[Rfam]
RNA sequence: GGAUCAAUGAUGAAAACAACUUUCUGAAAAUGGUGAAUAACAUACAAAUGGCAAUCAGAGGAUC
Numbered sequence: 001g002g003a004u005c006a007a008u009g010a011u012g013a014a015a016a017c018a019a020c021u022u023u024c025u026g027a028a029a030a031u032g033g034u035g036a037a038u039a040a041c042a043u044a045c046a047a048a049u050g051g052c053a054a055u056c057a058g059a060g061g062a063u064c
Stems, first nucleotide, its partner, number of pairs: 002064004
RNA: Small nucleolar RNA SNORD109A
Organism: Peromyscus maniculatus